[Rfam]
RNA sequence: CGACGUCCGCCGCCGAGUCCGCAUGCCUUCCCAGGGCGCGGAGCCGGGGACCCACCGCAUUUCCCGGGGUGAAUCGGCCGCAGCAGGCCGUAGGGCGACUUCCAGCCCGAACCCGUCAGCUAACCCGGUAGGCGGCUUGGAAGCAGAGGA
Numbered sequence: 001c002g003a004c005g006u007c008c009g010c011c012g013c014c015g016a017g018u019c020c021g022c023a024u025g026c027c028u029u030c031c032c033a034g035g036g037c038g039c040g041g042a043g044c045c046g047g048g049g050a051c052c053c054a055c056c057g058c059a060u061u062u063c064c065c066g067g068g069g070u071g072a073a074u075c076g077g078c079c080g081c082a083g084c085a086g087g088c089c090g091u092a093g094g095g096c097g098a099c100u101u102c103c104a105g106c107c108c109g110a111a112c113c114c115g116u117c118a119g120c121u122a123a124c125c126c127g128g129u130a131g132g133c134g135g136c137u138u139g140g141a142a143g144c145a146g147a148g149g150a
Base pairs, nucleotide, nucleotide: 011134012133013132014131018042019041020040021039022038043129044128045127046126047125048124053066067114068113069112075090076089077088078087093108094107095106096105
RNA: c-di-AMP riboswitch aptamer (ydaO/yuaA leader)